[Rfam]
Nucleotides: 141
Base pairs, nucleotide, nucleotide: 004138005137006136007135008134009133010132016028017027018026030121031120032110033109034066035065036064037063061108062107070085071084090106091105092104093103094102112124113123114122
Number, partner (000 for none) and nucleotide at each position: 001000g002000a003000c004138c005137g006136u007135c008134u009133u010132c011000g012000g013000g014000g015000u016028c017027g018026a019000u020000g021000a022000a023000a024000u025000u026018u027017c028016g029000a030121a031120c032110c033109g034066g035065c036064g037063g038000u039000g040000a041000a042000g043000c044000g045000g046000u047000c048000a049000c050000c051000a052000g053000g054000c055000c056000g057000c058000a059000c060000a061108g062107c063037c064036c065035g066034c067000g068000a069000c070085c071084c072000g073000c074000g075000c076000a077000c078000c079000u080000g081000c082000g083000c084071g085070g086000c087000u088000g089000a090106u091105c092104u093103g094102g095000u096000g097000a098000a099000a100000c101000u102094c103093c104092a105091g106090g107062g108061c109033c110032g111000a112124c113123g114122g115000u116000c117000a118000c119000a120031g121030u122114c123113c124112g125000g126000a127000u128000g129000g130000g131000a132010g133009a134008a135007g136006a137005c138004g139000c140000g141000c

The family of this 141-nucleotide RNA from Ruaniaceae bacterium KH17 is "FMN riboswitch aptamer (RFN element)".
The match comes from Rfam's covariance-model search (97 bits).